The family of this 126-nucleotide sequence from Vitis vinifera is "Small nucleolar RNA snoR111".
[Rfam]
RNA sequence: AAAAUGAGAGACGAAUGUGAAUGUCUCGUCAUUGAUAACAAGAGGAGGUAGAGAGAACGGAAAGGCGAGAUAUCGUUUCAGUCGUCAUUUCUCUGGAUUGGCGAUUCGAUUGUUGCUCGUCUACAU
Numbered sequence: 001a002a003a004a005u006g007a008g009a010g011a012c013g014a015a016u017g018u019g020a021a022u023g024u025c026u027c028g029u030c031a032u033u034g035a036u037a038a039c040a041a042g043a044g045g046a047g048g049u050a051g052a053g054a055g056a057a058c059g060g061a062a063a064g065g066c067g068a069g070a071u072a073u074c075g076u077u078u079c080a081g082u083c084g085u086c087a088u089u090u091c092u093c094u095g096g097a098u099u100g101g102c103g104a105u106u107c108g109a110u111u112g113u114u115g116c117u118c119g120u121c122u123a124c125a126u
Stems, first nucleotide, its partner, number of pairs: 003033004008027006064122002067118003072110004081105007089097002
Pairs were carried over by alignment from the consensus structure, which was predicted with WAR.
Rfam links the family to the GO terms nucleolus and RNA processing.
The family has 6 seed sequences and 533 matches in Rfam 15.1.